[Rfam]
RNA: TPP riboswitch aptamer (THI element)
Organism: Pasteurella multocida
RNA sequence: GCACUUUAGUCGGGGUGCUUUGUAACCAAAUUGUACAAAGCUGAGAUGAUACCCGUGAACCUGAUACAGCUAACACUGACGUAGGAAACUAAUUAUGCCAAUAA
Numbered sequence: 001g002c003a004c005u006u007u008a009g010u011c012g013g014g015g016u017g018c019u020u021u022g023u024a025a026c027c028a029a030a031u032u033g034u035a036c037a038a039a040g041c042u043g044a045g046a047u048g049a050u051a052c053c054c055g056u057g058a059a060c061c062u063g064a065u066a067c068a069g070c071u072a073a074c075a076c077u078g079a080c081g082u083a084g085g086a087a088a089c090u091a092a093u094u095a096u097g098c099c100a101a102u103a104a
Base pairs, nucleotide, nucleotide: 006092007091008090009089010088011055012054013053014052016049017041018040019039020038021037022036023035024034060085061084062083063082067078068077069076